[Rfam]
Nucleotides: 073
Base pairs, nucleotide, nucleotide: 001025002024004023005022006021007020008019009018010017011016038045039044047073048072049071056066057065058064059063
Number, partner (000 for none) and nucleotide at each position: 001025c002024a003000a004023c005022g006021a007020g008019u009018u010017c011016a012000g013000u014000g015000a016011u017010g018009a019008g020007c021006u022005u023004g024002u025001g026000a027000a028000c029000g030000g031000u032000a033000a034000g035000a036000a037000g038045u039044c040000a041000g042000c043000a044039g045038a046000g047073g048072u049071c050000a051000u052000a053000g054000u055000a056066g057065u058064c059063c060000a061000g062000u063059g064058g065057a066056u067000g068000a069000a070000g071049g072048a073047c